Shown here is a 49-nucleotide sequence from Pelagibacterium lacus, a member of the family "Guanidine-II riboswitch aptamer (mini-ykkC)".
Its family is annotated with regulation of gene expression in the Gene Ontology.
The match comes from Rfam's covariance-model search (35 bits).
Nucleotides: 049
Base pairs, nucleotide, nucleotide: 001021003019004018005016006015007014008013036049037048038047039046040045
Number, partner (000 for none) and nucleotide at each position: 001021u002000c003019g004018u005016g006015a007014g008013g009000a010000c011000g012000a013008c014007c015006u016005c017000c018004g019003c020000c021001a022000u023000g024000u025000u026000g027000g028000a029000g030000a031000c032000c033000a034000a035000u036049u037048c038047g039046g040045g041000a042000c043000g044000g045040c046039c047038c048037g049036a